This 70-nucleotide sequence from Biomphalaria glabrata belongs to the Rfam family "Small nucleolar RNA SNORD58". Rfam 15.1 lists 2,484 matches to the family in 680 species. The organism belongs to Biomphalaria, within Eukaryota. It is annotated as a C/D-box small nucleolar RNA. snoRNA U58 is found in introns 1, 3 and 6 of the ribosomal protein RPL17 gene in humans. A reference for the family is Galardi et al. (2002), "Purified box C/D snoRNPs are able to reproduce site-specific 2'-O-methylation of target RNA in vitro", Mol Cell Biol.
RNA sequence: UUGCUAUGAUGACUACUUAGGACACCUAUGAAUUACUACAAUAAUGUAAUCACUCACUAUACUGAGCAAU
Numbered sequence: 001u002u003g004c005u006a007u008g009a010u011g012a013c014u015a016c017u018u019a020g021g022a023c024a025c026c027u028a029u030g031a032a033u034u035a036c037u038a039c040a041a042u043a044a045u046g047u048a049a050u051c052a053c054u055c056a057c058u059a060u061a062c063u064g065a066g067c068a069a070u
Stems, first nucleotide, its partner, number of pairs: 001069004